Rfam assigns this 359-nucleotide part of an RNA from Halalkalicoccus jeotgali to the family "Archaeal large subunit ribosomal RNA". Rfam's curators put it in the seed alignment. Rfam links the family to the GO terms ribosome and structural constituent of ribosome. Pairs were carried over by alignment from the consensus structure, which is taken from published work. For this family Rfam cites "Crystal structure of the ribosome at 5.5 A resolution" (Yusupov et al., Science, 2001). NCBI's taxonomy places the organism under Archaea, Methanobacteriati, Methanobacteriota, Halalkalicoccus, Halalkalicoccus jeotgali.
RNA sequence: CGGGAUCAACCGACGUUAGGGAAUUCGGCAAAUUAGUCCCGUAAGUUCGCGAUAAGGGAUGCCUGCCCUGUGUAGGGGCAGGCCGCAGUGACUCGGACGCUCCGACUGUUUAGUAAAAACAUAGGUGAUCGCAAAUCCGAAAGGACUCGUACGAUCACUGAAUCCUGCCCAGUGCGGGUAUCUGAACACCUCGUACAAGAGGACGAAGGACCCGUUAACGGCGGGGGUAACUAUGACCCUCUUAAGGUAGCGUAGUACCUUGCCGCUUUAGUAGCGGCUUGCAUGAAUGGAUGAACGAGAGCGUCGCUGUCCCAACGUUGGGCCCGGUGAACUGUACGUUCCAGUGCGGAGUCUGGAGA
Numbered sequence: 001c002g003g004g005a006u007c008a009a010c011c012g013a014c015g016u017u018a019g020g021g022a023a024u025u026c027g028g029c030a031a032a033u034u035a036g037u038c039c040c041g042u043a044a045g046u047u048c049g050c051g052a053u054a055a056g057g058g059a060u061g062c063c064u065g066c067c068c069u070g071u072g073u074a075g076g077g078g079c080a081g082g083c084c085g086c087a088g089u090g091a092c093u094c095g096g097a098c099g100c101u102c103c104g105a106c107u108g109u110u111u112a113g114u115a116a117a118a119a120c121a122u123a124g125g126u127g128a129u130c131g132c133a134a135a136u137c138c139g140a141a142a143g144g145a146c147u148c149g150u151a152c153g154a155u156c157a158c159u160g161a162a163u164c165c166u167g168c169c170c171a172g173u174g175c176g177g178g179u180a181u182c183u184g185a186a187c188a189c190c191u192c193g194u195a196c197a198a199g200a201g202g203a204c205g206a207a208g209g210a211c212c213c214g215u216u217a218a219c220g221g222c223g224g225g226g227g228u229a230a231c232u233a234u235g236a237c238c239c240u241c242u243u244a245a246g247g248u249a250g251c252g253u254a255g256u257a258c259c260u261u262g263c264c265g266c267u268u269u270a271g272u273a274g275c276g277g278c279u280u281g282c283a284u285g286a287a288u289g290g291a292u293g294a295a296c297g298a299g300a301g302c303g304u305c306g307c308u309g310u311c312c313c314a315a316c317g318u319u320g321g322g323c324c325c326g327g328u329g330a331a332c333u334g335u336a337c338g339u340u341c342c343a344g345u346g347c348g349g350a351g352u353c354u355g356g357a358g359a
Stems, first nucleotide, its partner, number of pairs: 001326004010321008019312003036060005045050001061083009084088001096305007103297002107121003124159008132149001136145003162292004167222003172219002174215005181210003189202004223241006242246001262278006340357005